The record is a 121-nucleotide sequence from Pseudomonas sp. SSM44, which matches "Ribosomal S15 leader" in Rfam. A reference for the family is Benard et al. (1996), "Pseudoknot and translational control in the expression of the S15 ribosomal protein", Biochimie. Rfam classes the family as a cis-regulatory leader. The E. coli Ribosomal S15 gene 5' UTR can form two alternative structures. One that is a series of three hairpins, The other includes a pseudoknot. This structure causes translational regulation of the S15 protein. The alignment of this family contains only the final two hairpins which are conserved in other species, and also includes the complete region that forms the alternate structures.

Nucleotides: 121
Stems, first nucleotide, its partner, number of pairs: 009026004048075005054069001
Number, partner (000 for none) and nucleotide at each position: 001000g002000g003000u004000c005000a006000u007000a008000c009026c010025u011024c012023g013000a014000u015000u016000u017000a018000a019000a020000a021000c022000a023012c024011g025010g026009g027000a028000c029000a030000c031000u032000g033000g034000u035000c036000c037000c038000g039000g040000c041000c042000u043000g044000u045000u046000a047000c048075c049074u050073c051072a052071g053000a054069g055000g056000a057000a058000a059000u060000a061000c062000g063000a064000g065000a066000u067000g068000u069054c070000a071052c072051u073050g074049a075048g076000u077000g078000u079000u080000g081000a082000a083000g084000a085000a086000a087000a088000a089000g090000c091000u092000g093000c094000a095000a096000u097000c098000g099000u100000u101000g102000c103000c104000g105000a106000g107000u108000a109000c110000a111000a112000g113000c114000g115000c116000g117000c118000c119000g120000a121000a